[Rfam]
RNA sequence: UGGGGUGUAGCCAAGGGGUAAGGCACCAGACUUUGACUCUGGCAUUCCGUUGGUUCGAAUCCAGCCACCCCAG
Numbered sequence: 001u002g003g004g005g006u007g008u009a010g011c012c013a014a015g016g017g018g019u020a021a022g023g024c025a026c027c028a029g030a031c032u033u034u035g036a037c038u039c040u041g042g043c044a045u046u047c048c049g050u051u052g053g054u055u056c057g058a059a060u061c062c063a064g065c066c067a068c069c070c071c072a073g
Base pairs, nucleotide, nucleotide: 001072002071003070004069005068006067007066010024011023012022026042027041028040029039030038049065050064051063052062053061
RNA: tRNA
Organism: Lutispora thermophila